Rfam assigns this 310-nucleotide RNA sequence from Strongyloides venezuelensis to the family "Nuclear RNase P".

RNA sequence: UCUGGCUGAAAGUUGACUUUAGGAAUUACUUACCAGUAUUUAUUACUGAAUUUAUUCCUGGGAAGGUCUGAGAUAAGGCUCCUGAUUUUAAUGUAAAAUCAGUAACCUCCAGGAGGGGUUUUCUCGUAAUGAGAUUGGUUCCGUACCUGAAGAUAUCCUAACGGUUGCUUUAAACAAGAAGUUUCUGUCGGAAAUGGAUUUAUAGCUUCCGUUAGUUUGGAACCCGGCGCCGAUGCCAGCUAGCUUGAGUUCGAUAGUCAAUGAGAACAUUUAUUGUUCAAAACUCAAUUCAGACUACUCUUCGACCAGA
Dot-bracket structure: ((((...(((...[...[[.(((((........(((((.....)))))......)))))........(((((....(((.........................(((((.....)))))..((((.....))))..(((.(((.............(.........................................................).........))).)))...)))..................]]...]...(((((.....))))).........))))).......)))...))))
Numbered sequence: 001u002c003u004g005g006c007u008g009a010a011a012g013u014u015g016a017c018u019u020u021a022g023g024a025a026u027u028a029c030u031u032a033c034c035a036g037u038a039u040u041u042a043u044u045a046c047u048g049a050a051u052u053u054a055u056u057c058c059u060g061g062g063a064a065g066g067u068c069u070g071a072g073a074u075a076a077g078g079c080u081c082c083u084g085a086u087u088u089u090a091a092u093g094u095a096a097a098a099u100c101a102g103u104a105a106c107c108u109c110c111a112g113g114a115g116g117g118g119u120u121u122u123c124u125c126g127u128a129a130u131g132a133g134a135u136u137g138g139u140u141c142c143g144u145a146c147c148u149g150a151a152g153a154u155a156u157c158c159u160a161a162c163g164g165u166u167g168c169u170u171u172a173a174a175c176a177a178g179a180a181g182u183u184u185c186u187g188u189c190g191g192a193a194a195u196g197g198a199u200u201u202a203u204a205g206c207u208u209c210c211g212u213u214a215g216u217u218u219g220g221a222a223c224c225c226g227g228c229g230c231c232g233a234u235g236c237c238a239g240c241u242a243g244c245u246u247g248a249g250u251u252c253g254a255u256a257g258u259c260a261a262u263g264a265g266a267a268c269a270u271u272u273a274u275u276g277u278u279c280a281a282a283a284c285u286c287a288a289u290u291c292a293g294a295c296u297a298c299u300c301u302u303c304g305a306c307c308a309g310a
Stems, first nucleotide, its partner, number of pairs: 001310004008303003014261001018257002021059005034048005068293005077237003105119005122134004137231003141227003157215001265279005

Its Rfam clan is "RNaseP clan". The literature on the family includes a 1998 paper in Annu Rev Biochem by Frank and Pace, "Ribonuclease P: unity and diversity in a tRNA processing ribozyme". From the family's description: Ribonuclease P (RNase P) is a ubiquitous endoribonuclease, found in archaea, bacteria and eukarya as well as chloroplasts and mitochondria. Taxonomically the source falls in Strongyloides (Eukaryota, Eumetazoa, Ecdysozoa, Strongyloidoidea).